[Rfam]
RNA sequence: AAGUUAUCACGAAAGGCGGAGGGAUAGACCCAUUGAAACCUUAGCAACCCUUUAUCAUAAAGAAGGUGCUACAUUCUACUUUAUACAUUUACUGUAUUAAAGAUAGAUAACAC
Numbered sequence: 001a002a003g004u005u006a007u008c009a010c011g012a013a014a015g016g017c018g019g020a021g022g023g024a025u026a027g028a029c030c031c032a033u034u035g036a037a038a039c040c041u042u043a044g045c046a047a048c049c050c051u052u053u054a055u056c057a058u059a060a061a062g063a064a065g066g067u068g069c070u071a072c073a074u075u076c077u078a079c080u081u082u083a084u085a086c087a088u089u090u091a092c093u094g095u096a097u098u099a100a101a102g103a104u105a106g107a108u109a110a111c112a113c
Stems, first nucleotide, its partner, number of pairs: 003111006013042004021031003025078004043070004048066002050062004074105001079102005
The record is a 113-nucleotide sequence from Flavobacterium sp. KMS, which matches "SAM riboswitch aptamer (S box leader)" in Rfam.